[Rfam]
RNA sequence: AAAUGUGAAGGCGAUCUGGCUGUAACAUCUGUCACCCCAUUGAUCACCAGGGUUGAUUCCGUUGAUCUGGCUGGCUAGACGGGUGUCCCCUUUCUUUCUCACCACUCCAUGUGCGUCCCUCCCGAAGCUACGCUCUCUGUUGAAGAGGACGACCUUCGGGAUAGAAGAGAGGUCCGUUCUUCUGUCAAGGGUAUACGAGUAGCUGCGCUCCCCUGCUAAAACCUCCAAACAAGCUCUCAAGGUCCAUUUGUAGGAGAAUGUAGGGUAGCCAAGCUUCUAAGACUCCAGGCACAUCCAGAUGAGGCGCUGCAUGUGGCAGUCUGCCUUCCUUU
Dot-bracket structure: ..(.((((.((.((...((.....(((((((((.(((((..((((((.............)).)))))))..))...)))))))))..)).))..)).))))...).........(((.(((.((.(.......))).)((.....(((.....)))..))..)).)...)).............................(((...((.((((((......((((..(((((.............))))).))))...)))))).))...)))......................(((.((((((((((.....)))))..)))))..)))
RNA: 7SK RNA